[Rfam]
RNA: tRNA
RNA sequence: GGAUGCAUAGCUCAGUUGGUAGAGCAGCUGACUCUUAAUCAGCGGGUCCCAGGUUCGAGCCCUGGUGCGUCCA
Numbered sequence: 001g002g003a004u005g006c007a008u009a010g011c012u013c014a015g016u017u018g019g020u021a022g023a024g025c026a027g028c029u030g031a032c033u034c035u036u037a038a039u040c041a042g043c044g045g046g047u048c049c050c051a052g053g054u055u056c057g058a059g060c061c062c063u064g065g066u067g068c069g070u071c072c073a
Stems, first nucleotide, its partner, number of pairs: 001072007010025004027043005049065005